[Rfam]
RNA sequence: CGCGCUGCGUGUUCACUGUCUGUCUUAAUCUCUGAUUGGGUAUUAAGGCACGCGGUGAAUGCCAAGAGUG
Numbered sequence: 001c002g003c004g005c006u007g008c009g010u011g012u013u014c015a016c017u018g019u020c021u022g023u024c025u026u027a028a029u030c031u032c033u034g035a036u037u038g039g040g041u042a043u044u045a046a047g048g049c050a051c052g053c054g055g056u057g058a059a060u061g062c063c064a065a066g067a068g069u070g
Stems, first nucleotide, its partner, number of pairs: 003068001005066002009062008018053002023048007
RNA: mir-124 microRNA precursor family